[Rfam]
RNA sequence: ACGUGAGUUGGGUCCAGGGCCUGUAUGGGGCUCAACGAGUUUGGCAGGGUUCAGGAGGGUCUUGCCGAACGUCCUCAAGAGUGCGGAA
Numbered sequence: 001a002c003g004u005g006a007g008u009u010g011g012g013u014c015c016a017g018g019g020c021c022u023g024u025a026u027g028g029g030g031c032u033c034a035a036c037g038a039g040u041u042u043g044g045c046a047g048g049g050u051u052c053a054g055g056a057g058g059g060u061c062u063u064g065c066c067g068a069a070c071g072u073c074c075u076c077a078a079g080a081g082u083g084c085g086g087a088a
Stems, first nucleotide, its partner, number of pairs: 007036009018026001037073002039070014
This 88-nucleotide RNA sequence from Pseudomonas savastanoi belongs to the Rfam family "gyrA RNA". Rfam's curators put it in the seed alignment. The family's RNA type in Rfam is cis-regulatory element. The source organism's lineage runs through Bacteria, Pseudomonadati, Pseudomonadota, Pseudomonadaceae and Pseudomonas savastanoi pv. phaseolicola. The base pairs follow the family's consensus structure, which is taken from published work.